[Rfam]
RNA sequence: GCCAAGGCUUUUCAAGAGCUUGGCGCGGGCGCCGGCAGGUGUCCGGCGCUCUCGGACCCAUGUUGCUCAAUGGAGGAUAUGGCGAUGAGAA
Numbered sequence: 001g002c003c004a005a006g007g008c009u010u011u012u013c014a015a016g017a018g019c020u021u022g023g024c025g026c027g028g029g030c031g032c033c034g035g036c037a038g039g040u041g042u043c044c045g046g047c048g049c050u051c052u053c054g055g056a057c058c059c060a061u062g063u064u065g066c067u068c069a070a071u072g073g074a075g076g077a078u079a080u081g082g083c084g085a086u087g088a089g090a091a
Stems, first nucleotide, its partner, number of pairs: 001024006008018002028050008051089004058082007066075003
Dot-bracket structure: ((((((.((.......))))))))...((((((((.......))))))))((((...(((((((.(((....))))))))))...))))..
The record is a 91-nucleotide RNA from Microvirga thermotolerans, which matches "Repression of heat shock gene expression (ROSE) element" in Rfam. Its family is annotated with response to temperature stimulus and regulation of translation in the Gene Ontology. A reference for the family is Nocker et al. (2001), "A mRNA-based thermosensor controls expression of rhizobial heat shock genes", Nucleic Acids Res. The source organism's lineage runs through Bacteria, Pseudomonadati, Pseudomonadota, Alphaproteobacteria and Microvirga. It scores 54 bits against the family's covariance model. Pairs were carried over by alignment from the consensus structure, which is taken from published work. Rfam 15.1 lists 381 matches to the family in 262 species. By type it is an RNA thermoregulator. From the family's description: This family represents a 5' UTR cis-regulatory element found in heat shock mRNAs and is known as the ROSE (repression of heat shock gene expression) element. The ROSE element is a negative regulator of heat shock gene expression. The secondary structure is thought to be regulated by temperature. This regulation blocks access to the ribosome binding site under normal conditions.